[Rfam]
RNA sequence: GCAUCGGACAGCAAGCUUGCAGAUGCACAACAGGGGUAUGACUUCACCCUCACCGCAAUGCCCUCAGCCCUGGCCGGUGCCAAUGUCAUCUACGGCCUGG
Numbered sequence: 001g002c003a004u005c006g007g008a009c010a011g012c013a014a015g016c017u018u019g020c021a022g023a024u025g026c027a028c029a030a031c032a033g034g035g036g037u038a039u040g041a042c043u044u045c046a047c048c049c050u051c052a053c054c055g056c057a058a059u060g061c062c063c064u065c066a067g068c069c070c071u072g073g074c075c076g077g078u079g080c081c082a083a084u085g086u087c088a089u090c091u092a093c094g095g096c097c098u099g100g
Base pairs, nucleotide, nucleotide: 001012033062034061077098079096080095
A member of the RNA family "Pyrrolysine insertion sequence mttB" from Desulfocicer vacuolatum, 100 nucleotides long. By type it is a cis-regulatory element. Taxonomically the source falls in Desulfocicer vacuolatum (Bacteria, Pseudomonadati, Thermodesulfobacteriota, Desulfobacteria). Gene Ontology term of the family: pyrrolysine incorporation.